Shown here is a 107-nucleotide RNA from Marinithermofilum abyssi, a member of the family "SAM riboswitch aptamer (S box leader)". Lineage of the source: Bacteria > Bacilli > Caryophanales > Thermoactinomycetaceae > Marinithermofilum.
[Rfam]
Nucleotides: 107
Stems, first nucleotide, its partner, number of pairs: 003105006013041001015040003021031003025081001027079002042073004047069002050065004077099001082096006
Number, partner (000 for none) and nucleotide at each position: 001000g002000a003105c004104u005103c006102a007101u008100c009000c010000a011000g012000a013041g014000a015040g016039g017038c018000g019000g020000a021031g022030g023029g024000a025081c026000u027079g028078g029023c030022c031021c032000g033000a034000u035000g036000a037000a038017g039016c040015c041013c042073g043072g044071c045070a046000a047069c048068c049000u050065a051064c052063c053062c054000a055000u056000u057000u058000u059000a060000c061000g062053g063052g064051g065050u066000g067000u068048g069047g070045u071044g072043c073042c074000a075000a076000u077099u078028c079027c080000u081025g082096c083095a084094g085093a086092g087091a088000u089000u090000u091087u092086c093085u094084c095083u096082g097000a098000c099077a100008g101007a102006u103005g104004a105003g106000a107000g